Background: Rfam assigns this 148-nucleotide RNA sequence from Morella rubra to the family "Small nucleolar RNA snoR2/U65". Rfam 15.1 lists 908 matches to the family in 230 species. The family's RNA type in Rfam is H/ACA-box small nucleolar RNA. For this family Rfam cites "Localization and processing from a polycistronic precursor of novel snoRNAs in maize" (Shaw et al., J Cell Sci, 1998). Its Rfam clan is "SNORA65 clan". The organism belongs to Morella, within Eukaryota.
RNA sequence: GGUCCGAUGCCACGUCGCCGUUGGCUGUAAACAGCGUUGAACGGCGAUGCUAUGAUUGGACCAAGAGCGAUUCCAUGUUUCGCAUGCUGAUAGGAACCUGUGGAUCUGAUGCAGUUGGUCCACAGAGCCGAUUUCUGCGAUUACAUUC
Numbered sequence: 001g002g003u004c005c006g007a008u009g010c011c012a013c014g015u016c017g018c019c020g021u022u023g024g025c026u027g028u029a030a031a032c033a034g035c036g037u038u039g040a041a042c043g044g045c046g047a048u049g050c051u052a053u054g055a056u057u058g059g060a061c062c063a064a065g066a067g068c069g070a071u072u073c074c075a076u077g078u079u080u081c082g083c084a085u086g087c088u089g090a091u092a093g094g095a096a097c098c099u100g101u102g103g104a105u106c107u108g109a110u111g112c113a114g115u116u117g118g119u120c121c122a123c124a125g126a127g128c129c130g131a132u133u134u135c136u137g138c139g140a141u142u143a144c145a146u147u148c
Stems, first nucleotide, its partner, number of pairs: 002061007009053001013049006020042003024035003080140005093129002098125003102121005